[Rfam]
RNA: Glycine riboswitch aptamer
RNA sequence: CCAACCCACAUGGGAGAGACCGGGUCGACGUGAGGCGCUUGUCGCCUGACCUCGGCUCGGCGCCGAAGGGGCAACAUCCCCGGAACCUCUCAGGCACCCGGACCAUGUGGCGAGG
Numbered sequence: 001c002c003a004a005c006c007c008a009c010a011u012g013g014g015a016g017a018g019a020c021c022g023g024g025u026c027g028a029c030g031u032g033a034g035g036c037g038c039u040u041g042u043c044g045c046c047u048g049a050c051c052u053c054g055g056c057u058c059g060g061c062g063c064c065g066a067a068g069g070g071g072c073a074a075c076a077u078c079c080c081c082g083g084a085a086c087c088u089c090u091c092a093g094g095c096a097c098c099c100g101g102a103c104c105a106u107g108u109g110g111c112g113a114g115g
Stems, first nucleotide, its partner, number of pairs: 006110008020060009062095003065091002069089003075082001